[Rfam]
RNA sequence: AUGAUCACUACGGGGAGCCAAUAGGCUGAGAGGACAAUAGUCGACCCGAAGAACCUGAUCUGGGUUAUACCAGCGGAGGGAUAGUUGAGAAAAAAGAA
Numbered sequence: 001a002u003g004a005u006c007a008c009u010a011c012g013g014g015g016a017g018c019c020a021a022u023a024g025g026c027u028g029a030g031a032g033g034a035c036a037a038u039a040g041u042c043g044a045c046c047c048g049a050a051g052a053a054c055c056u057g058a059u060c061u062g063g064g065u066u067a068u069a070c071c072a073g074c075g076g077a078g079g080g081a082u083a084g085u086u087g088a089g090a091a092a093a094a095a096g097a098a
Stems, first nucleotide, its partner, number of pairs: 007085004011048004017026003033042003054079003060073004
RNA: TPP riboswitch aptamer (THI element)